[Rfam]
RNA sequence: UCCGUAGUGAUUCGGCAUCUAAAGGAAGUCUUAGGCAAAGCACUGACCUGACGUACAGAAACUUGAUACUAAGGCAUAUGAGUGUGGGUAAGUCUGCCAAACAAGAUAAAGCCCUAUAGCUAUAUGGAACACUCGGUGUAAAUCAAGCAGGUAUAAGUGUGAAAGAUUAUAUU
Numbered sequence: 001u002c003c004g005u006a007g008u009g010a011u012u013c014g015g016c017a018u019c020u021a022a023a024g025g026a027a028g029u030c031u032u033a034g035g036c037a038a039a040g041c042a043c044u045g046a047c048c049u050g051a052c053g054u055a056c057a058g059a060a061a062c063u064u065g066a067u068a069c070u071a072a073g074g075c076a077u078a079u080g081a082g083u084g085u086g087g088g089u090a091a092g093u094c095u096g097c098c099a100a101a102c103a104a105g106a107u108a109a110a111g112c113c114c115u116a117u118a119g120c121u122a123u124a125u126g127g128a129a130c131a132c133u134c135g136g137u138g139u140a141a142a143u144c145a146a147g148c149a150g151g152u153a154u155a156a157g158u159g160u161g162a163a164a165g166a167u168u169a170u171a172u173u
Stems, first nucleotide, its partner, number of pairs: 002015003006011001028173001032169001036165001040160005046152005062147006074139003079135007086114004092107004
Group II catalytic intron D1-D4-3: a 173-nucleotide RNA sequence from Bacteroides thetaiotaomicron. Rfam's curators write: Group II introns are found in rRNA, tRNA and mRNA of organelles in fungi, plants and protists, and also in mRNA in bacteria. NCBI's taxonomy places the organism under Bacteria, Bacteroidota, Bacteroidia, Bacteroidales, Bacteroides thetaiotaomicron. The sequence is in the family's curated seed alignment.